RNA sequence: GGGAAAUGAAGAGUGGUGAAAUCUCGCACAAAAAAAGCGAGUGGGGUGUCCGCCCCAGCCUGGUUACGACUAUUGGGCACUCUCCCUCUGACCGAUCUGAUCCC
Numbered sequence: 001g002g003g004a005a006a007u008g009a010a011g012a013g014u015g016g017u018g019a020a021a022u023c024u025c026g027c028a029c030a031a032a033a034a035a036a037g038c039g040a041g042u043g044g045g046g047u048g049u050c051c052g053c054c055c056c057a058g059c060c061u062g063g064u065u066a067c068g069a070c071u072a073u074u075g076g077g078c079a080c081u082c083u084c085c086c087u088c089u090g091a092c093c094g095a096u097c098u099g100a101u102c103c104c
Base pairs, nucleotide, nucleotide: 001104002103003102004101014094015093016092017091023041024040025039026038027037043083044082045081046080047079048078049077050076061075062074063073064072
RNA: Small nucleolar RNA Z279/snoR105/snoR108